Molybdenum/Tungsten riboswitch aptamer (Moco RNA motif): a 141-nucleotide RNA from Atlantibacter hermannii. The match comes from Rfam's covariance-model search (91 bits). The family's consensus secondary structure is taken from published work. The organism belongs to Atlantibacter hermannii, within Bacteria.

RNA sequence: AUAUGAAGCAUACACUCAAGCUACUCCGCCUAAGUCGCAUUAUUCGCUGAUAUGGCAGUUUGGCCGUGACAAACGUCACCAGGGUGCAGAAAGAAAUAACUGCAUCUCCCGUAUUUGGAAAGGUGUACAUGGUCUCUCAAC
Numbered sequence: 001a002u003a004u005g006a007a008g009c010a011u012a013c014a015c016u017c018a019a020g021c022u023a024c025u026c027c028g029c030c031u032a033a034g035u036c037g038c039a040u041u042a043u044u045c046g047c048u049g050a051u052a053u054g055g056c057a058g059u060u061u062g063g064c065c066g067u068g069a070c071a072a073a074c075g076u077c078a079c080c081a082g083g084g085u086g087c088a089g090a091a092a093g094a095a096a097u098a099a100c101u102g103c104a105u106c107u108c109c110c111g112u113a114u115u116u117g118g119a120a121a122g123g124u125g126u127a128c129a130u131g132g133u134c135u136c137u138c139a140a141c
Stems, first nucleotide, its partner, number of pairs: 003135001011127005017122001020064004026058001028056003034051004066079005082107008092097001108118002